[Rfam]
RNA sequence: GGGGUGACUCCGCGAUGCUGUCGGACCCCCGACCUGGCAGCAUCGCGGAGUUCACCA
Numbered sequence: 001g002g003g004g005u006g007a008c009u010c011c012g013c014g015a016u017g018c019u020g021u022c023g024g025a026c027c028c029c030c031g032a033c034c035u036g037g038c039a040g041c042a043u044c045g046c047g048g049a050g051u052u053c054a055c056c057a
Stems, first nucleotide, its partner, number of pairs: 002056002007051016